[Rfam]
RNA: Plastid-ndhJ 3UTR RNA
RNA sequence: UCAUGAACUUUGUACCGCGCACAUCAAUUAGAUGGGUUCCAGAAAUAGAAAGUCAU
Numbered sequence: 001u002c003a004u005g006a007a008c009u010u011u012g013u014a015c016c017g018c019g020c021a022c023a024u025c026a027a028u029u030a031g032a033u034g035g036g037u038u039c040c041a042g043a044a045a046u047a048g049a050a051a052g053u054c055a056u
Base pairs, nucleotide, nucleotide: 019037020036022034023033024032025031